Annotation
A member of the RNA family "mir-33 microRNA precursor family" from Neodiprion lecontei, 66 nucleotides long. The family's consensus secondary structure was predicted with PFOLD. A reference for the family is Li et al. (2009), "Direct sequencing and expression analysis of a large number of miRNAs in Aedes aegypti and a multi-species survey of novel mosquito miRNAs", BMC Genomics.
RNA sequence: CAAGGGUGCAUUGUAGUUGCAUUGCACGAAAUAUAACUGUGCAAUACUUCUGCAGUGCAACCUCUG
Numbered sequence: 001c002a003a004g005g006g007u008g009c010a011u012u013g014u015a016g017u018u019g020c021a022u023u024g025c026a027c028g029a030a031a032u033a034u035a036a037c038u039g040u041g042c043a044a045u046a047c048u049u050c051u052g053c054a055g056u057g058c059a060a061c062c063u064c065u066g
Stems, first nucleotide, its partner, number of pairs: 001066002004063001006062001007059010019047001021045007